[Rfam]
RNA sequence: UGCUUUUACCUGGUGCCAGCUAUUUUCUUUCAUUAGGGAAAGCAGUGAGGAAGGUAUCAAAGAGUAGCAGACUUUUAAACUUUAGACAGUUUUUACUCAGAAGCUUAUUUUUCUGUUUUAUUUCAUCCUCCAAGGAGUGCAUUCACUUGACACAUCCGCUUCUUUUUAAGUGAAAGAAUACAGCAAACAAGCAAC
Numbered sequence: 001u002g003c004u005u006u007u008a009c010c011u012g013g014u015g016c017c018a019g020c021u022a023u024u025u026u027c028u029u030u031c032a033u034u035a036g037g038g039a040a041a042g043c044a045g046u047g048a049g050g051a052a053g054g055u056a057u058c059a060a061a062g063a064g065u066a067g068c069a070g071a072c073u074u075u076u077a078a079a080c081u082u083u084a085g086a087c088a089g090u091u092u093u094u095a096c097u098c099a100g101a102a103g104c105u106u107a108u109u110u111u112u113c114u115g116u117u118u119u120a121u122u123u124c125a126u127c128c129u130c131c132a133a134g135g136a137g138u139g140c141a142u143u144c145a146c147u148u149g150a151c152a153c154a155u156c157c158g159c160u161u162c163u164u165u166u167u168a169a170g171u172g173a174a175a176g177a178a179u180a181c182a183g184c185a186a187a188c189a190a191g192c193a194a195c
Base pairs, nucleotide, nucleotide: 002020003019004018007015008014009013029137030136031135033133034132036130037129038128040123041122042121047117048116049114050113052112053111054110069093070092071091073089074088094107095106096103146191147190148189149188153183159176160175161174162172164170165169
Dot-bracket structure: .(((..(((...)))..)))........(((.((.(((.(((....((((.(((..............(((.((.............)).)))(((......)..))..))))).))...)))....))).)).)))........((((...(.....((((.((...)).).)))......)....))))....
Background: This 195-nucleotide RNA from Marmota monax belongs to the Rfam family "Connexin-43 internal ribosome entry site (IRES)". Rfam's curators write: This family represents the connexin-43 internal ribosome entry site (IRES) which allows cap independent translation during conditions such as heat shock and stress. On this family, see Schiavi et al., FEBS Lett 1999: "Connexin43 mRNA contains a functional internal ribosome entry site".